[Rfam]
RNA sequence: CGGGUCCGACAGGGGAGCGCUCCGGCGCUGAGAGUGCGGCCCGCAGCCGCAGACCCUAAGAACCUGCCCCGGUUAGCACCGGCGAAGGAAGUCGACCUUGGCCCUGC
Numbered sequence: 001c002g003g004g005u006c007c008g009a010c011a012g013g014g015g016a017g018c019g020c021u022c023c024g025g026c027g028c029u030g031a032g033a034g035u036g037c038g039g040c041c042c043g044c045a046g047c048c049g050c051a052g053a054c055c056c057u058a059a060g061a062a063c064c065u066g067c068c069c070c071g072g073u074u075a076g077c078a079c080c081g082g083c084g085a086a087g088g089a090a091g092u093c094g095a096c097c098u099u100g101g102c103c104c105u106g107c
Base pairs, nucleotide, nucleotide: 007094008093009092010091011057012056013055014054017028018027019026020025035051036050037049038048039047063088064087065086069082070081071080072079
TPP riboswitch aptamer (THI element): a 107-nucleotide RNA sequence from Ornithinimicrobium sp. CNJ-824. Taxonomically the source falls in Ornithinimicrobium (Bacteria, Bacillati, Actinomycetes, Micrococcales). The family's consensus secondary structure is taken from published work.